[Rfam]
RNA: MIR6152 microRNA precursor family
Organism: Nicotiana attenuata
RNA sequence: UGGACAGAUUAUUGUAUUCGACUGUAUUCACGGGAUUACACUGUUUUUAAACGGAAAGUGAAUCAAUUAACGUAAUAGACUCCU
Number, nucleotide and partner (000 for none) at each position: 001u000002g083003g082004a081005c000006a000007g000008a000009u078010u077011a076012u075013u074014g073015u072016a000017u070018u069019c000020g068021a067022c000023u065024g064025u000026a063027u062028u061029c060030a059031c058032g000033g000034g000035a000036u051037u000038a045039c000040a000041c000042u000043g000044u000045u038046u000047u000048u000049a000050a000051a036052c000053g000054g000055a000056a000057a000058g031059u030060g029061a028062a027063u026064c024065a023066a000067u021068u020069a018070a017071c000072g015073u014074a013075a012076u011077a010078g009079a000080c000081u004082c003083c002084u000